Rfam assigns this 175-nucleotide sequence from Metallococcus carri to the family "c-di-AMP riboswitch aptamer (ydaO/yuaA leader)". Lineage of the source: Bacteria > Actinomycetota > Micrococcales > Dermacoccaceae > Metallococcus. Rfam describes the family as follows. This family represents a conserved RNA structure found upstream of the ydaO and yuaA genes in Bacillus subtilis and related genes in other bacteria. The ydaO/yuaA element is thought to act as a genetic 'off' switch for the ydaO and yuaA genes in its native state. It is believed that the element may be triggered during osmotic shock leading to activation of ydaO, a predicted amino acid transporter gene, and members of the yuaA-yubG operon which code for KtrA and KtrB K+ transporters. A search with the family's covariance model found it, with a score of 63 bits.
RNA sequence: CGUGCCCCGACGCCGAAUCUCCAUGCGGGCACGCGGUCGCCAUACCGGCGGCCGGGAGAGCGGGGGACCCACCGGGACCGACCCAGUCCCAUGGGGUGAAGCCGGUUCGCCGGCCGGGCAUGCCUGACGCCCGAACCCGACAGCUCACCUCGCAGGCGCUCGUCAGGAAGGACAU
Numbered sequence: 001c002g003u004g005c006c007c008c009g010a011c012g013c014c015g016a017a018u019c020u021c022c023a024u025g026c027g028g029g030c031a032c033g034c035g036g037u038c039g040c041c042a043u044a045c046c047g048g049c050g051g052c053c054g055g056g057a058g059a060g061c062g063g064g065g066g067a068c069c070c071a072c073c074g075g076g077a078c079c080g081a082c083c084c085a086g087u088c089c090c091a092u093g094g095g096g097u098g099a100a101g102c103c104g105g106u107u108c109g110c111c112g113g114c115c116g117g118g119c120a121u122g123c124c125u126g127a128c129g130c131c132c133g134a135a136c137c138c139g140a141c142a143g144c145u146c147a148c149c150u151c152g153c154a155g156g157c158g159c160u161c162g163u164c165a166g167g168a169a170g171g172a173c174a175u
Stems, first nucleotide, its partner, number of pairs: 011158004018059005060153006070093002094138003102113004116132004